[Rfam]
RNA: leuA-Halobacteria RNA
Organism: Halapricum salinum
RNA sequence: CGACACGGAGGAUAGAGGAAGUCGCCACACGGCGGCUGGCCGCGAAAUUCUAC
Numbered sequence: 001c002g003a004c005a006c007g008g009a010g011g012a013u014a015g016a017g018g019a020a021g022u023c024g025c026c027a028c029a030c031g032g033c034g035g036c037u038g039g040c041c042g043c044g045a046a047a048u049u050c051u052a053c
Stems, first nucleotide, its partner, number of pairs: 020037007